Shown here is a 189-nucleotide RNA sequence from Ceratopteris richardii, a member of the family "Small nucleolar RNA ZL1". It scores 65 bits against the family's covariance model. Taxonomically the source falls in Ceratopteris (Eukaryota, Streptophyta, Embryophyta, Polypodiales). Rfam classes the family as a C/D-box small nucleolar RNA. The family has 5 seed sequences and 300 matches in Rfam 15.1.

RNA sequence: GCAUGCAUGUAUGCAUGUGCAUUCAUGCAUGUAUGCAUGUGUAUGCAUGCAUGCAUGUGUAUGCAUGCAUGUAUGCAUGUGUAUGCAUGCAUGUAUGCAUGUGUAUGCAUGCAUGUAUGCAUGUGUAUGCAUGCAUGUAAGCAUAUGCAUUCAUGUAUGCAUAUGCAUGCAUGCACAUGCAUGUAUGCA
Numbered sequence: 001g002c003a004u005g006c007a008u009g010u011a012u013g014c015a016u017g018u019g020c021a022u023u024c025a026u027g028c029a030u031g032u033a034u035g036c037a038u039g040u041g042u043a044u045g046c047a048u049g050c051a052u053g054c055a056u057g058u059g060u061a062u063g064c065a066u067g068c069a070u071g072u073a074u075g076c077a078u079g080u081g082u083a084u085g086c087a088u089g090c091a092u093g094u095a096u097g098c099a100u101g102u103g104u105a106u107g108c109a110u111g112c113a114u115g116u117a118u119g120c121a122u123g124u125g126u127a128u129g130c131a132u133g134c135a136u137g138u139a140a141g142c143a144u145a146u147g148c149a150u151u152c153a154u155g156u157a158u159g160c161a162u163a164u165g166c167a168u169g170c171a172u173g174c175a176c177a178u179g180c181a182u183g184u185a186u187g188c189a
Stems, first nucleotide, its partner, number of pairs: 004189005012181003026171006034105004039100001041098001043096012063076005107120004124139005142165004147160004
Dot-bracket structure: ...(((((...(((...........((((((..((((.(.(.((((((((((((........(((((....)))))........)))))))))))).).).)))).((((......))))...(((((......)))))..((((.((((......)))).)))))))))).......)))...)))))